[Rfam]
Nucleotides: 095
Base pairs, nucleotide, nucleotide: 007018008017009015010014032060033059034058035057036056042053043052044051045050
Number, partner (000 for none) and nucleotide at each position: 001000u002000u003000g004000g005000a006000u007018g008017a009015u010014g011000a012000a013000c014010c015009a016000a017008u018007c019000u020000a021000c022000c023000a024000a025000a026000a027000g028000c029000a030000u031000a032060g033059u034058u035057c036056a037000c038000c039000u040000g041000a042053g043052a044051u045050c046000u047000u048000c049000g050045g051044a052043u053042u054000g055000c056036u057035g058034a059033a060032c061000g062000a063000a064000a065000a066000a067000c068000u069000u070000g071000a072000u073000c074000c075000a076000u077000c078000u079000u080000u081000a082000a083000c084000c085000u086000u087000u088000a089000u090000c091000u092000g093000a094000u095000a

This 95-nucleotide sequence from Penicillium subrubescens belongs to the Rfam family "A. fumigatus snoRNA Afu_263". Its family is annotated with RNA processing and nucleolus in the Gene Ontology. Lineage of the source: Eukaryota > Fungi > Dikarya > saccharomyceta > Penicillium. Its Rfam clan is "SNORD77 clan". A search with the family's covariance model found it, with a score of 77 bits. The base pairs follow the family's consensus structure.